[Rfam]
This 117-nucleotide RNA from Pontibacillus halophilus belongs to the Rfam family "SAM riboswitch aptamer (S box leader)". Lineage of the source: Bacteria > Bacillati > Bacillota > Bacillaceae > Pontibacillus halophilus.
RNA sequence: CUCUUAUCGAGAGAGGCAGAGGGACUAGGCCCUACGACGCCCAGCAACCAUCAAGUGUAAGUAUCACUUGAAAAGGUGCUAAUUCCUACAGGUCAACGUUGAUCUGACAGAUAAGAG
Numbered sequence: 001c002u003c004u005u006a007u008c009g010a011g012a013g014a015g016g017c018a019g020a021g022g023g024a025c026u027a028g029g030c031c032c033u034a035c036g037a038c039g040c041c042c043a044g045c046a047a048c049c050a051u052c053a054a055g056u057g058u059a060a061g062u063a064u065c066a067c068u069u070g071a072a073a074a075g076g077u078g079c080u081a082a083u084u085c086c087u088a089c090a091g092g093u094c095a096a097c098g099u100u101g102a103u104c105u106g107a108c109a110g111a112u113a114a115g116a117g
Stems, first nucleotide, its partner, number of pairs: 001117008013042001015041003021032003026088004043080004048076002051071007084109001089106006
It scores 87 bits against the family's covariance model. The family is grouped with related families in Rfam's "SAM clan".